Plant small nucleolar RNA R71: a 107-nucleotide RNA from Olea europaea. The source organism's lineage runs through Eukaryota, Streptophytina, Spermatophyta, Mesangiospermae and Olea europaea. The family's RNA type in Rfam is C/D-box small nucleolar RNA. Rfam 15.1 lists 278,378 matches to the family in 216 species. On this family, see Brown et al., Trends Plant Sci 2003: "Plant snoRNAs: functional evolution and new modes of gene expression". Rfam links the family to the GO terms nucleolus and RNA processing.
[Rfam]
RNA sequence: AUCCCAUGGUGUGGACACUUUCGCAGCAUAUUCUUGAACUGAUUCCAGGCUUCAUCGAAAAUUUUCGAGUUGCCUUAGCGAAAAACAGAGAUGUUGUGCUUGAGCUU
Numbered sequence: 001a002u003c004c005c006a007u008g009g010u011g012u013g014g015a016c017a018c019u020u021u022c023g024c025a026g027c028a029u030a031u032u033c034u035u036g037a038a039c040u041g042a043u044u045c046c047a048g049g050c051u052u053c054a055u056c057g058a059a060a061a062u063u064u065u066c067g068a069g070u071u072g073c074c075u076u077a078g079c080g081a082a083a084a085a086c087a088g089a090g091a092u093g094u095u096g097u098g099c100u101u102g103a104g105c106u107u
Stems, first nucleotide, its partner, number of pairs: 001107001004104001005102002057074001060071001